Rfam assigns this 210-nucleotide part of an RNA from Monosporascus sp. 5C6A to the family "Ascomycota telomerase RNA". It is annotated as a non-coding RNA gene. A reference for the family is Qi et al. (2013), "The common ancestral core of vertebrate and fungal telomerase RNAs", Nucleic Acids Res. It scores 344 bits against the family's covariance model. Its family is annotated with telomerase activity, telomerase catalytic core complex and telomere maintenance via telomerase in the Gene Ontology.
[Rfam]
RNA sequence: UCCCCCACAGUUCUCCGAUUCCCAUUUUCCGAAAGGAAUGUCUCCGGACCCCUCGGUUGGUCCGAUACCCACACGGCGCGUCGCAGUUCGGGGUCAGUGGGACCUAAUGUUCAUGCCGCGUGUGGAUCGCCGUGUGAGGGUGGCUAGCUGGCUAGCUUGCGAGACCCGCUGUUGGGAAUGGCGUUUCGGAACUUAACCCUAAGCUAUCAU
Numbered sequence: 001u002c003c004c005c006c007a008c009a010g011u012u013c014u015c016c017g018a019u020u021c022c023c024a025u026u027u028u029c030c031g032a033a034a035g036g037a038a039u040g041u042c043u044c045c046g047g048a049c050c051c052c053u054c055g056g057u058u059g060g061u062c063c064g065a066u067a068c069c070c071a072c073a074c075g076g077c078g079c080g081u082c083g084c085a086g087u088u089c090g091g092g093g094u095c096a097g098u099g100g101g102a103c104c105u106a107a108u109g110u111u112c113a114u115g116c117c118g119c120g121u122g123u124g125g126a127u128c129g130c131c132g133u134g135u136g137a138g139g140g141u142g143g144c145u146a147g148c149u150g151g152c153u154a155g156c157u158u159g160c161g162a163g164a165c166c167c168g169c170u171g172u173u174g175g176g177a178a179u180g181g182c183g184u185u186u187c188g189g190a191a192c193u194u195a196a197c198c199c200u201a202a203g204c205u206a207u208c209a210u
Base pairs, nucleotide, nucleotide: 009193010192011191015189016188017187018186